The record is a 112-nucleotide RNA sequence from Sus scrofa, which matches "Small nucleolar RNA SNORD89" in Rfam.
It scores 51 bits against the family's covariance model.
Pairs were carried over by alignment from the consensus structure, which was predicted with RNAalifold.
On this family, see Huttenhofer et al., EMBO J 2001: "RNomics: an experimental approach that identifies 201 candidates for novel, small, non-messenger RNAs in mouse".
Rfam describes the family as follows. snoRNA HBII-289 belongs to the family of C/D snoRNAs. It is the human orthologue of the mouse MBII-289 and has no identified RNA target.
[Rfam]
RNA sequence: UCUGGGGAAUGACGACAAUAAAAGGCCAAAUGACAGUGUUUCCAUUCACAAUUUGCCCUCUUUGUGGGCGCACAAGACAAAAAUCUGAAAUGAACCACUGAAAAGCAUCAGG
Numbered sequence: 001u002c003u004g005g006g007g008a009a010u011g012a013c014g015a016c017a018a019u020a021a022a023a024g025g026c027c028a029a030a031u032g033a034c035a036g037u038g039u040u041u042c043c044a045u046u047c048a049c050a051a052u053u054u055g056c057c058c059u060c061u062u063u064g065u066g067g068g069c070g071c072a073c074a075a076g077a078c079a080a081a082a083a084u085c086u087g088a089a090a091u092g093a094a095c096c097a098c099u100g101a102a103a104a105g106c107a108u109c110a111g112g
Base pairs, nucleotide, nucleotide: 001112002111003110004109005108007106016100025034035099036098037097038096041093042092045089046088047087048086052072054070055069056068057067058066075084